[Rfam]
RNA: Small nucleolar RNA Z43
RNA sequence: GGACAGUGACGAAUUCUUGUGAAAGGUCUCGUUCGUCGUAAUUGGCUUCGGCCUUGCCGACCAUCCUGCUAUAUCACCACCCAUAUUCUGAGUCC
Numbered sequence: 001g002g003a004c005a006g007u008g009a010c011g012a013a014u015u016c017u018u019g020u021g022a023a024a025g026g027u028c029u030c031g032u033u034c035g036u037c038g039u040a041a042u043u044g045g046c047u048u049c050g051g052c053c054u055u056g057c058c059g060a061c062c063a064u065c066c067u068g069c070u071a072u073a074u075c076a077c078c079a080c081c082c083a084u085a086u087u088c089u090g091a092g093u094c095c
Stems, first nucleotide, its partner, number of pairs: 001095004040055002042050001